[Rfam]
RNA sequence: GGGUACAUCUUACCUGACAGUGCUUGGCUGUUCACUGAUGUUCUAACACUGUCUGGUAACGAUGCACUC
Numbered sequence: 001g002g003g004u005a006c007a008u009c010u011u012a013c014c015u016g017a018c019a020g021u022g023c024u025u026g027g028c029u030g031u032u033c034a035c036u037g038a039u040g041u042u043c044u045a046a047c048a049c050u051g052u053c054u055g056g057u058a059a060c061g062a063u064g065c066a067c068u069c
Stems, first nucleotide, its partner, number of pairs: 002068003006064004010059005016053007024045001026043002
RNA: mir-8/mir-141/mir-200 microRNA precursor family